Record summary:
FMN riboswitch aptamer (RFN element): a 135-nucleotide RNA sequence from Tessaracoccus rhinocerotis.
RNA sequence: AGCGUGUUCCGGGGUCGGUGAAAGUCCGAACCGGCGGUUACAGCCCGCGACCCUCCCACUGCCGCAAGGCGACCGGAGGUUGACUCGGUGGAACUCCGAGGCCGACAGUCAGAGUCUGGAUGGGAGGAACGCGUG
Numbered sequence: 001a002g003c004g005u006g007u008u009c010c011g012g013g014g015u016c017g018g019u020g021a022a023a024g025u026c027c028g029a030a031c032c033g034g035c036g037g038u039u040a041c042a043g044c045c046c047g048c049g050a051c052c053c054u055c056c057c058a059c060u061g062c063c064g065c066a067a068g069g070c071g072a073c074c075g076g077a078g079g080u081u082g083a084c085u086c087g088g089u090g091g092a093a094c095u096c097c098g099a100g101g102c103c104g105a106c107a108g109u110c111a112g113a114g115u116c117u118g119g120a121u122g123g124g125a126g127g128a129a130c131g132c133g134u135g
Stems, first nucleotide, its partner, number of pairs: 003133008016028003030115002032104002034048004043102002052079005084100005106118003
A search with the family's covariance model found it, with a score of 98 bits.